[Rfam]
RNA: RcsR1 sRNA
Organism: Neorhizobium sp. S3-V5DH
RNA sequence: ACAUCGGCAACUGGUGGUGGGCACGCUUCGCGCGGCCUUGACCAGUCAUGUCCAUCGACAAGACGCAAAGCCGCCCGAGUACCGAGGCGGCUUUUUU
Numbered sequence: 001a002c003a004u005c006g007g008c009a010a011c012u013g014g015u016g017g018u019g020g021g022c023a024c025g026c027u028u029c030g031c032g033c034g035g036c037c038u039u040g041a042c043c044a045g046u047c048a049u050g051u052c053c054a055u056c057g058a059c060a061a062g063a064c065g066c067a068a069a070g071c072c073g074c075c076c077g078a079g080u081a082c083c084g085a086g087g088c089g090g091c092u093u094u095u096u097u
Stems, first nucleotide, its partner, number of pairs: 011045005017039001019038004024034003049060004068093008076084002